[Rfam]
RNA sequence: UCUGGCUGUGAUUGUCCAAACGCAAUUCUUGUGAAGUUUAAAUCAAGAACUGUGUGUGGACAUCAGUGCUUGA
Numbered sequence: 001u002c003u004g005g006c007u008g009u010g011a012u013u014g015u016c017c018a019a020a021c022g023c024a025a026u027u028c029u030u031g032u033g034a035a036g037u038u039u040a041a042a043u044c045a046a047g048a049a050c051u052g053u054g055u056g057u058g059g060a061c062a063u064c065a066g067u068g069c070u071u072g073a
Base pairs, nucleotide, nucleotide: 002072004070005069006068009065010064011063012062014061015060016059017058018057021054022053023052024051026049027048028047029046030045031044
RNA: mir-219 microRNA precursor family